[Rfam]
RNA sequence: GUGAUUGUAGCUCAGUUGGUAGAGCCCUGGAUUGUGAUUCCAGUCGUCGGGGGUUCGAGUCCCCUCAGUCACC
Dot-bracket structure: (((((((..((((........)))).(((((.......))))).....(((((.......)))))))))))).